[Rfam]
Description: The record is a 106-nucleotide RNA from Bacillus sp. FJAT-18017, which matches "SAM riboswitch aptamer (S box leader)" in Rfam. NCBI's taxonomy places the organism under Bacteria, Bacillota, Bacilli, Bacillaceae, Bacillus.
RNA sequence: AUUUUAUCAAGAGAGGUGGAGGGAAUGGCCCUGUGAAGCCUCGGCAACAGGCCUGGAAAGGGUACUGUGCCAAGUCCAGCAGGACAUAUUUCCUGGAAGAUAAGCA
Numbered sequence: 001a002u003u004u005u006a007u008c009a010a011g012a013g014a015g016g017u018g019g020a021g022g023g024a025a026u027g028g029c030c031c032u033g034u035g036a037a038g039c040c041u042c043g044g045c046a047a048c049a050g051g052c053c054u055g056g057a058a059a060g061g062g063u064a065c066u067g068u069g070c071c072a073a074g075u076c077c078a079g080c081a082g083g084a085c086a087u088a089u090u091u092c093c094u095g096g097a098a099g100a101u102a103a104g105c106a
Stems, first nucleotide, its partner, number of pairs: 003104006013042005021031003026078003043071004048067002050063001052061002075098001080095005